[Rfam]
The record is a 233-nucleotide RNA sequence from Iocasia frigidifontis, which matches "Group II catalytic intron D1-D4-6" in Rfam. Taxonomically the source falls in Iocasia (Bacteria, Clostridia, Halanaerobiales, Halanaerobiaceae). Rfam's curators write: Group II introns are found in rRNA, tRNA and mRNA of organelles in fungi, plants and protists, and also in mRNA in bacteria.
RNA sequence: GGAAUCCUACUGAGGAAGGUUUAGCAAACCACUCAUAGCGAGUUUUGGACAUUUAUUGGGUAACCAUAGAUGUUAAGCGUAAACAGUUAGGUAGUAGGCGGUAAGCAUUUAGCUGAAGGGAUUGAGCCUCGAAAUCUUGGAGAUUGGGAAAGGCCGAUGCUGUCGACUGAGCAGAAGGCAACAUUAUUGUAUUCGAUAAGCGAGAAUACAAGAACUCUUCCAGUAAAAGAACU
Numbered sequence: 001g002g003a004a005u006c007c008u009a010c011u012g013a014g015g016a017a018g019g020u021u022u023a024g025c026a027a028a029c030c031a032c033u034c035a036u037a038g039c040g041a042g043u044u045u046u047g048g049a050c051a052u053u054u055a056u057u058g059g060g061u062a063a064c065c066a067u068a069g070a071u072g073u074u075a076a077g078c079g080u081a082a083a084c085a086g087u088u089a090g091g092u093a094g095u096a097g098g099c100g101g102u103a104a105g106c107a108u109u110u111a112g113c114u115g116a117a118g119g120g121a122u123u124g125a126g127c128c129u130c131g132a133a134a135u136c137u138u139g140g141a142g143a144u145u146g147g148g149a150a151a152g153g154c155c156g157a158u159g160c161u162g163u164c165g166a167c168u169g170a171g172c173a174g175a176a177g178g179c180a181a182c183a184u185u186a187u188u189g190u191a192u193u194c195g196a197u198a199a200g201c202g203a204g205a206a207u208a209c210a211a212g213a214a215c216u217c218u219u220c221c222a223g224u225a226a227a228a229g230a231a232c233u
Stems, first nucleotide, its partner, number of pairs: 011035004018030004022203001024201002038087002042084004046079002048074008057066003123227001126224002131221001147220003151216002153179003158173004184214002187211008